Actinobacteria sRNA Ms_IGR-5: a 195-nucleotide RNA sequence from Haloactinospora alba.
For this family Rfam cites "Identification of small RNAs in Mycobacterium smegmatis using heterologous Hfq" (Li et al., RNA, 2013).
The source organism's lineage runs through Bacteria, Bacillati, Actinomycetota, Streptosporangiales and Haloactinospora.
A search with the family's covariance model found it, with a score of 57 bits.
[Rfam]
RNA sequence: AGACGGGAAAGGAGGUGGUCCGGAAGUGAAGACGCAACGGACGAGUGAGGUGUCCGCUCGCUAGGAGCGGCACCAGGAGAGAUUCCGGGCCGCUUCUAGCGGUCUGUGAGCGGGCACCCAGAUCCCCGGGCGGCCGGACCUUGUCCACCCGGCCCCCGCCCUUGGUGGGCGGGAGCGGCCCCGGGGAUCCUUCCU
Numbered sequence: 001a002g003a004c005g006g007g008a009a010a011g012g013a014g015g016u017g018g019u020c021c022g023g024a025a026g027u028g029a030a031g032a033c034g035c036a037a038c039g040g041a042c043g044a045g046u047g048a049g050g051u052g053u054c055c056g057c058u059c060g061c062u063a064g065g066a067g068c069g070g071c072a073c074c075a076g077g078a079g080a081g082a083u084u085c086c087g088g089g090c091c092g093c094u095u096c097u098a099g100c101g102g103u104c105u106g107u108g109a110g111c112g113g114g115c116a117c118c119c120a121g122a123u124c125c126c127c128g129g130g131c132g133g134c135c136g137g138a139c140c141u142u143g144u145c146c147a148c149c150c151g152g153c154c155c156c157c158g159c160c161c162u163u164g165g166u167g168g169g170c171g172g173g174a175g176c177g178g179c180c181c182c183g184g185g186g187a188u189c190c191u192u193c194c195u
Stems, first nucleotide, its partner, number of pairs: 014058005059101007067093004073087001121189010133153005